A member of the RNA family "PhotoRC-II RNA", 97 nucleotides long.
RNA sequence: CCUCACUAUCCAACACGCCUCACCAAGACUAAACAGCGUGUAUAAACAAUAGUCUUUAAUACCUCAGGCGGAGGGUGUCUGAGGAAUAUUCUAACUU
Numbered sequence: 001c002c003u004c005a006c007u008a009u010c011c012a013a014c015a016c017g018c019c020u021c022a023c024c025a026a027g028a029c030u031a032a033a034c035a036g037c038g039u040g041u042a043u044a045a046a047c048a049a050u051a052g053u054c055u056u057u058a059a060u061a062c063c064u065c066a067g068g069c070g071g072a073g074g075g076u077g078u079c080u081g082a083g084g085a086a087u088a089u090u091c092u093a094a095c096u097u
Stems, first nucleotide, its partner, number of pairs: 014040005025056005063083007
Rfam classes the family as a cis-regulatory element.